SAM riboswitch aptamer (S box leader): a 102-nucleotide sequence from Intestinibaculum porci.

[Rfam]
RNA sequence: CUCUUAUUAAGAACCACAUAGAUGCGGAUCGUUUUAAAGUGGUGGCAACCCUUUUGAUAGAAGGUGCCUGAACCAAGCAAGAUUUGUCUUGAACAAUAAGAG
Numbered sequence: 001c002u003c004u005u006a007u008u009a010a011g012a013a014c015c016a017c018a019u020a021g022a023u024g025c026g027g028a029u030c031g032u033u034u035u036a037a038a039g040u041g042g043u044g045g046c047a048a049c050c051c052u053u054u055u056g057a058u059a060g061a062a063g064g065u066g067c068c069u070g071a072a073c074c075a076a077g078c079a080a081g082a083u084u085u086g087u088c089u090u091g092a093a094c095a096a097u098a099a100g101a102g
Stems, first nucleotide, its partner, number of pairs: 001102008013043005021030003027074001044068004049064002051060002078091005
Record summary
Gene Ontology term of the family: regulation of gene expression. Lineage of the source: Bacteria > Bacillati > Erysipelotrichia > Erysipelotrichaceae > Intestinibaculum.